[Rfam]
RNA sequence: UCUUCGAUGAUGAUUAACACAGUGACUUUCGUUCUUCUGAGUAUCCUGAAGCCAACCUUUCUGUCCUGAGAAGA
Numbered sequence: 001u002c003u004u005c006g007a008u009g010a011u012g013a014u015u016a017a018c019a020c021a022g023u024g025a026c027u028u029u030c031g032u033u034c035u036u037c038u039g040a041g042u043a044u045c046c047u048g049a050a051g052c053c054a055a056c057c058u059u060u061c062u063g064u065c066c067u068g069a070g071a072a073g074a
Stems, first nucleotide, its partner, number of pairs: 001074003005070001